[Rfam]
Overview
A member of the RNA family "Selenocysteine insertion sequence 1" from Etheostoma spectabile, 68 nucleotides long. The match comes from Rfam's covariance-model search (36 bits). A reference for the family is Walczak et al. (1996), "A novel RNA structural motif in the selenocysteine insertion element of eukaryotic selenoprotein mRNAs", RNA. Lineage of the source: Eukaryota > Chordata > Euteleostomi > Teleostei > Oligocephalus. The family has 61 seed sequences and 3,793 matches in Rfam 15.1.
RNA sequence: CUCUCGUUAAUGAAGUCUAUGGUGUAAAACCUGCCUGCAGGACGCCGUAGACGGAUGUGUGUGGAGAG
Numbered sequence: 001c002u003c004u005c006g007u008u009a010a011u012g013a014a015g016u017c018u019a020u021g022g023u024g025u026a027a028a029a030c031c032u033g034c035c036u037g038c039a040g041g042a043c044g045c046c047g048u049a050g051a052c053g054g055a056u057g058u059g060u061g062u063g064g065a066g067a068g
Stems, first nucleotide, its partner, number of pairs: 001068005015052010031040003